[Rfam]
RNA sequence: UGGAUCGAUGAUGACUACUGGUAGCAUGAGUCAUAUACAGUGAAUACAUGUCUGGAACUCUGAGGUCUGU
Numbered sequence: 001u002g003g004a005u006c007g008a009u010g011a012u013g014a015c016u017a018c019u020g021g022u023a024g025c026a027u028g029a030g031u032c033a034u035a036u037a038c039a040g041u042g043a044a045u046a047c048a049u050g051u052c053u054g055g056a057a058c059u060c061u062g063a064g065g066u067c068u069g070u
Base pairs, nucleotide, nucleotide: 002068003067004066005065006064
RNA: Small nucleolar RNA SNORD113/SNORD114 family